A member of the RNA family "Purine riboswitch aptamer" from Terribacillus saccharophilus, 102 nucleotides long. Rfam's curators write: Riboswitches are metabolite binding domains within certain messenger RNAs that serve as precision sensors for their corresponding targets. The literature on the family includes a 2003 paper in Cell by Mandal et al., "Riboswitches Control Fundamental Biochemical Pathways in Bacillus subtilis and Other Bacteria".
[Rfam]
RNA sequence: AAUACUAUAUAUUUUCGUCUUCGUAUAAUUUUGGGAAUAUGGCCCAUAAGUUUCUACCAGGUUACCGUAAUUAACCUGACUACGCUGACCUCUUAAUCUGAG
Number, nucleotide and partner (000 for none) at each position: 001a000002a000003u000004a000005c000006u000007a000008u000009a000010u000011a000012u000013u000014u000015u000016c000017g000018u088019c087020u000021u000022c084023g083024u082025a081026u000027a000028a000029u049030u048031u000032u046033g045034g044035g043036a000037a000038u000039a000040u000041g000042g000043c035044c034045c033046a032047u000048a030049a029050g000051u000052u000053u000054c000055u000056a000057c000058c078059a077060g076061g075062u074063u073064a072065c000066c000067g000068u000069a000070a000071u000072u064073a063074a062075c061076c060077u059078g058079a000080c000081u025082a024083c023084g022085c000086u000087g019088a018089c000090c000091u000092c000093u000094u000095a000096a000097u000098c000099u000100g000101a000102g000